A member of the RNA family "Group I catalytic intron" from Mortierella polycephala, 259 nucleotides long. On this family, see Cech, Annu Rev Biochem 1990: "Self-splicing of group I introns". The match comes from Rfam's covariance-model search (82 bits). Rfam describes the family as follows. Group I catalytic introns are large self-splicing ribozymes. They catalyse their own excision from mRNA, tRNA and rRNA precursors in a wide range of organisms. The core secondary structure consists of 9 paired regions (P1-P9).
RNA sequence: CAUGUAGGGUAAAAUUUAGCCCCUUAAAAUAGUAAUGUUUUAAUGUAAAUAGGGAGAAUUGCAAGGAUACCCUUUUGUAUAAAGGGCAAUUUGCAGCGGAGCUUAUUUCGGUAAAAUUGGUUUACCAAUUUGAAGUAUGAACGUUCAACGACUAACGAGUGAGUUUUACCAACAAUAAUCUUGACACGAGCACCCUACAACCAUUUACUAUCGGGUAAAUUGGUUGAAGACAUAGUCUAAGCCCAGUCGUAAGUUUGGG
Numbered sequence: 001c002a003u004g005u006a007g008g009g010u011a012a013a014a015u016u017u018a019g020c021c022c023c024u025u026a027a028a029a030u031a032g033u034a035a036u037g038u039u040u041u042a043a044u045g046u047a048a049a050u051a052g053g054g055a056g057a058a059u060u061g062c063a064a065g066g067a068u069a070c071c072c073u074u075u076u077g078u079a080u081a082a083a084g085g086g087c088a089a090u091u092u093g094c095a096g097c098g099g100a101g102c103u104u105a106u107u108u109c110g111g112u113a114a115a116a117u118u119g120g121u122u123u124a125c126c127a128a129u130u131u132g133a134a135g136u137a138u139g140a141a142c143g144u145u146c147a148a149c150g151a152c153u154a155a156c157g158a159g160u161g162a163g164u165u166u167u168a169c170c171a172a173c174a175a176u177a178a179u180c181u182u183g184a185c186a187c188g189a190g191c192a193c194c195c196u197a198c199a200a201c202c203a204u205u206u207a208c209u210a211u212c213g214g215g216u217a218a219a220u221u222g223g224u225u226g227a228a229g230a231c232a233u234a235g236u237c238u239a240a241g242c243c244c245a246g247u248c249g250u251a252a253g254u255u256u257g258g259g
Base pairs, nucleotide, nucleotide: 007022008021009020010019012017028039029038030037050197051196052195053194056191060095061094062093063092064091065090070086071085072084073083074082096144097143103137107133108132110130111129148238150237151236152235153234154233200224201223202222203221205219206218244257245256246255248253